This 139-nucleotide sequence from Eudromia elegans belongs to the Rfam family "Small nucleolar RNA SNORA47". The family's consensus secondary structure was predicted with WAR. Lineage of the source: Eukaryota > Deuterostomia > Tetrapoda > Coelurosauria > Eudromia. Its family is annotated with nucleolus and RNA processing in the Gene Ontology. For this family Rfam cites "RNomics: an experimental approach that identifies 201 candidates for novel, small, non-messenger RNAs in mouse" (Huttenhofer et al., EMBO J, 2001). The family has 20 seed sequences and 733 matches in Rfam 15.1. It scores 71 bits against the family's covariance model. The family's RNA type in Rfam is H/ACA-box small nucleolar RNA.
RNA sequence: UGGAGGACUGAGAAGGUAAGACAGUUAUACCUUAUGCUGUGCCUUACUGGUUAUAGCCUCCAAAAUUAUAGUAGUGCAAUGGCAGCUCAUGUUCCCCUCUUGCCUUGAGGGAAAACAAUACUGCACUUGCACAUAAGAU
Numbered sequence: 001u002g003g004a005g006g007a008c009u010g011a012g013a014a015g016g017u018a019a020g021a022c023a024g025u026u027a028u029a030c031c032u033u034a035u036g037c038u039g040u041g042c043c044u045u046a047c048u049g050g051u052u053a054u055a056g057c058c059u060c061c062a063a064a065a066u067u068a069u070a071g072u073a074g075u076g077c078a079a080u081g082g083c084a085g086c087u088c089a090u091g092u093u094c095c096c097c098u099c100u101u102g103c104c105u106u107g108a109g110g111g112a113a114a115a116c117a118a119u120a121c122u123g124c125a126c127u128u129g130c131a132c133a134u135a136a137g138a139u
Base pairs, nucleotide, nucleotide: 002061003060004059005058006057015048016047017046018045021040022039023038024037025036082130083129090123091122098117100115101114104111